[Rfam]
RNA sequence: CCCGCCACUAUGCCUGUUUGUCAAAGUGACUGAGUAUAAUCCAGUGGAGGCUGAGAUAGACCCAGCUUUAGGAAACAGGGUUGCCUAAACUAAUGGGCAACUCUGUGCCGAAAGGUCUGGAACACGU
Numbered sequence: 001c002c003c004g005c006c007a008c009u010a011u012g013c014c015u016g017u018u019u020g021u022c023a024a025a026g027u028g029a030c031u032g033a034g035u036a037u038a039a040u041c042c043a044g045u046g047g048a049g050g051c052u053g054a055g056a057u058a059g060a061c062c063c064a065g066c067u068u069u070a071g072g073a074a075a076c077a078g079g080g081u082u083g084c085c086u087a088a089a090c091u092a093a094u095g096g097g098c099a100a101c102u103c104u105g106u107g108c109c110g111a112a113a114g115g116u117c118u119g120g121a122a123c124a125c126g127u
Stems, first nucleotide, its partner, number of pairs: 005047005018034002020031001021029002062120004066115004071109002076105006084097003
The record is a 127-nucleotide RNA from Myripristis murdjan, which matches "Small nucleolar RNA SNORA65" in Rfam. For this family Rfam cites "RNomics: an experimental approach that identifies 201 candidates for novel, small, non-messenger RNAs in mouse" (Huttenhofer et al., EMBO J, 2001). The match comes from Rfam's covariance-model search (99 bits). The organism belongs to Myripristis, within Eukaryota.